[Rfam]
About this RNA
A member of the RNA family "SAM riboswitch aptamer (S box leader)" from Sphingobacterium cellulitidis, 99 nucleotides long. A search with the family's covariance model found it, with a score of 68 bits. From the family's description: The SAM riboswitch is found upstream of a number of genes which code for proteins involved in methionine or cysteine biosynthesis in Gram-positive bacteria. Taxonomically the source falls in Sphingobacterium (Bacteria, Pseudomonadati, Bacteroidota, Sphingobacteriia).

Nucleotides: 099
Stems, first nucleotide, its partner, number of pairs: 002098006013043005021032003026077004044069004049065002051062004073091001078088003
Number, partner (000 for none) and nucleotide at each position: 001000c002098g003097c004096u005095u006094a007093u008000a009000g010000a011000g012000a013043a014042a015041g016040g017039c018000a019000g020000a021032g022031g023030g024000a025000c026077u027076a028075g029074a030023c031022c032021c033000g034000c035000u036000g037000a038000a039017g040016c041015c042014u043013u044069a045068g046067c047066a048000a049065c050064c051062u052061g053060a054059c055000a056000c057000c058000a059054g060053u061052c062051a063000a064050g065049g066047u067046g068045c069044u070000a071000c072000a073091u074029u075028c076027u077026a078088c079087c080086c081000c082000a083000a084000a085000u086080g087079g088078g089000a090000a091073a092000g093007a094006u095005a096004a097003g098002c099000c